Annotation
The family of this 233-nucleotide RNA sequence from Clostridium vincentii is "Group II catalytic intron D1-D4-6".
[Rfam]
RNA sequence: GAAAUCCUGCAUGAUAAAGGUUAGCAACCAGUCAUUAGUUAGUCUUGGGCUUAUUAUGGUGAUGUAAUAAGUUAAGUGUAGACAAAUUAGGUACUAGGCCACAAGCGAAUGCUGAAACUAAUAGCCACGAAAUAUUGGAAAGUGGAGAGGACGAUGGUUUCCGGGGACUAGAAGUCGGAACAUAUGAAAUUGUUAUAGUUAGAUUUUAUAUGCUCUCCCGUGGUUCGAAGGUG
Number, nucleotide and partner (000 for none) at each position: 001g000002a000003a000004a000005u000006c000007c000008u000009g000010c000011a035012u034013g033014a032015u000016a000017a000018a000019g029020g028021u027022u201023a200024g199025c198026a000027a021028c020029c019030a000031g000032u014033c013034a012035u011036u000037a000038g087039u000040u000041a000042g083043u082044c081045u080046u078047g077048g073049g072050c071051u070052u069053a068054u067055u066056a065057u064058g063059g000060u000061g000062a000063u058064g057065u056066a055067a054068u053069a052070a051071g050072u049073u048074a000075a000076g000077u047078g046079u000080a045081g044082a043083c042084a000085a000086a000087u038088u000089a000090g000091g000092u000093a000094c000095u000096a000097g000098g000099c000100c000101a000102c000103a000104a000105g000106c000107g000108a000109a000110u000111g000112c000113u000114g000115a000116a000117a000118c000119u000120a000121a000122u227123a000124g224125c223126c222127a221128c220129g219130a000131a000132a000133u000134a000135u000136u000137g000138g000139a000140a000141a000142g000143u000144g218145g217146a216147g215148a214149g213150g176151a175152c174153g000154a000155u170156g169157g168158u167159u000160u000161c000162c000163g000164g000165g000166g000167a158168c157169u156170a155171g000172a000173a000174g152175u151176c150177g000178g000179a000180a000181c212182a211183u210184a209185u208186g207187a206188a205189a204190u203191u202192g000193u000194u000195a000196u000197a000198g025199u024200u023201a022202g191203a190204u189205u188206u187207u186208a185209u184210a183211u182212g181213c149214u148215c147216u146217c145218c144219c129220g128221u127222g126223g125224u124225u000226c000227g122228a000229a000230g000231g000232u000233g000